This 78-nucleotide RNA sequence from a Mycobacteriaceae bacterium belongs to the Rfam family "ASpks TB sRNA". The family's RNA type in Rfam is antisense RNA. NCBI's taxonomy places the organism under Bacteria, Bacillati, Actinomycetota, Mycobacteriales, Mycobacteriaceae. A reference for the family is Arnvig and Young (2009), "Identification of small RNAs in Mycobacterium tuberculosis", Mol Microbiol.
RNA sequence: UUUCAGCGAGCCCAACCACAGCGGUGUGCCGUGGCCGCCGCGGUCCUGCCCGUAGGUCGCCAGCAAUGCCUGUGCCUC
Dot-bracket structure: ..............(((.....)))..........(....((...(((.(.(....).).)))...))...)......
Numbered sequence: 001u002u003u004c005a006g007c008g009a010g011c012c013c014a015a016c017c018a019c020a021g022c023g024g025u026g027u028g029c030c031g032u033g034g035c036c037g038c039c040g041c042g043g044u045c046c047u048g049c050c051c052g053u054a055g056g057u058c059g060c061c062a063g064c065a066a067u068g069c070c071u072g073u074g075c076c077u078c
Stems, first nucleotide, its partner, number of pairs: 015025003036072001041068002046063003050059001052057001